[Rfam]
RNA: MIR6152 microRNA precursor family
Organism: Nicotiana sylvestris
RNA sequence: UGCAAGCUAAUUGUAUUCGACUGUAUUGACGACGUGAAAUAGGGGAUUACACUAUUUUUAAAACGAAAAGUGAAUCAAUUAACAUAAUAGACUCCU
Number, nucleotide and partner (000 for none) at each position: 001u000002g095003c000004a093005a000006g000007c000008u090009a000010a088011u087012u086013g085014u084015a000016u082017u081018c000019g080020a079021c000022u077023g076024u000025a075026u074027u073028g000029a071030c070031g000032a000033c065034g064035u063036g058037a057038a056039a055040u054041a053042g052043g000044g000045g000046a000047u000048u000049a000050c000051a000052c042053u041054a040055u039056u038057u037058u036059u000060a000061a000062a000063a035064c034065g033066a000067a000068a000069a000070g030071u029072g000073a027074a026075u025076c023077a022078a000079u020080u019081a017082a016083c000084a014085u013086a012087a011088u010089a000090g008091a000092c000093u004094c000095c002096u000